Record summary:
This 232-nucleotide sequence from Secundilactobacillus similis belongs to the Rfam family "T-box leader". The base pairs follow the family's consensus structure, which is taken from published work. Uncharged tRNA acts as the effector for transcription antitermination of genes in the T-box leader family. T-boxes are found upstream of many aminoacyl-tRNA synthetase genes and some amino acid biosynthetic genes usually in Gram-positive bacteria. The anticodon of a specific tRNA base pairs to a specifier sequence within the T-box motif, and the NCCA acceptor tail of the tRNA base pairs to a conserved bulge in the T-box antiterminator hairpin.
RNA sequence: GAAAACGCCGUGACUAGUCUAAGUAGGUCUUCAUUUAAGAGAGUAUUCGUUUGGCUGAAAGAAUACACGUGAGACCGAACCACAACUAAGAGCUGGUGUACUGAAGCGCUAAGUGAGUAAGUGCACCCGUUUGACCCCGUUACCGGUCCAAGUUUUAACGAACUUACUGAGGUAGCCAUCGCGAGGUGGUUACAAAUCAGAGGUGGAACCGUGAUGAAUAAUCGCCCUCUCG
Numbered sequence: 001g002a003a004a005a006c007g008c009c010g011u012g013a014c015u016a017g018u019c020u021a022a023g024u025a026g027g028u029c030u031u032c033a034u035u036u037a038a039g040a041g042a043g044u045a046u047u048c049g050u051u052u053g054g055c056u057g058a059a060a061g062a063a064u065a066c067a068c069g070u071g072a073g074a075c076c077g078a079a080c081c082a083c084a085a086c087u088a089a090g091a092g093c094u095g096g097u098g099u100a101c102u103g104a105a106g107c108g109c110u111a112a113g114u115g116a117g118u119a120a121g122u123g124c125a126c127c128c129g130u131u132u133g134a135c136c137c138c139g140u141u142a143c144c145g146g147u148c149c150a151a152g153u154u155u156u157a158a159c160g161a162a163c164u165u166a167c168u169g170a171g172g173u174a175g176c177c178a179u180c181g182c183g184a185g186g187u188g189g190u191u192a193c194a195a196a197u198c199a200g201a202g203g204u205g206g207a208a209c210c211g212u213g214a215u216g217a218a219u220a221a222u223c224g225c226c227c228u229c230u231c232g
Base pairs, nucleotide, nucleotide: 007093008092015088016087017086018085026076027075028074029073030072032069034067043066044065045064046063047062048061096126097125098124099123100122101121102120128139129138172193173192174191175190176189177188178187200229201228202227203226211225212224213223214222215221